[Rfam]
RNA: NiCo (Nickel/Cobalt) riboswitch aptamer
Organism: Pseudobacteroides cellulosolvens
RNA sequence: UAUUUACAAAUAGAGCAGGCGAUGCACUCUUUGAGUGUGUGGGGCUGGGCUGGCAAGCGAGCUGGCAGCAGGAAAAAAUACCUGUGGGACUAUA
Number, nucleotide and partner (000 for none) at each position: 001u000002a000003u000004u000005u000006a000007c000008a000009a000010a093011u092012a091013g090014a000015g000016c088017a000018g046019g045020c044021g000022a040023u039024g038025c037026a036027c035028u000029c000030u000031u000032u000033g000034a000035g027036u026037g025038u024039g023040u022041g000042g000043g000044g020045c019046u018047g000048g000049g066050c065051u064052g063053g062054c000055a000056a000057g000058c000059g000060a000061g000062c053063u052064g051065g050066c049067a000068g085069c084070a083071g082072g081073a000074a000075a000076a000077a000078a000079u000080a000081c072082c071083u070084g069085u068086g000087g000088g016089a000090c013091u012092a011093u010094a000